The record is a 128-nucleotide sequence from Homoserinibacter sp. GY 40078, which matches "FMN riboswitch aptamer (RFN element)" in Rfam. Gene Ontology term of the family: FMN binding.
[Rfam]
RNA sequence: ACGUGCUCCGGGGGCGGUGAAAAUCCGCACCGGCGGUGAUAGUCCGCGAACUCCGUCUCCUUCGAGGCGGAGCCGAUCCGGUGGAAUUCCGGAACCGACGGUGAUAGUCCGGAUGGAAGGAAGCACGC
Numbered sequence: 001a002c003g004u005g006c007u008c009c010g011g012g013g014g015c016g017g018u019g020a021a022a023a024u025c026c027g028c029a030c031c032g033g034c035g036g037u038g039a040u041a042g043u044c045c046g047c048g049a050a051c052u053c054c055g056u057c058u059c060c061u062u063c064g065a066g067g068c069g070g071a072g073c074c075g076a077u078c079c080g081g082u083g084g085a086a087u088u089c090c091g092g093a094a095c096c097g098a099c100g101g102u103g104a105u106a107g108u109c110c111g112g113a114u115g116g117a118a119g120g121a122a123g124c125a126c127g128c
Stems, first nucleotide, its partner, number of pairs: 003124002007120002015027003029108002031097002033047004042095002051072002077093005099111003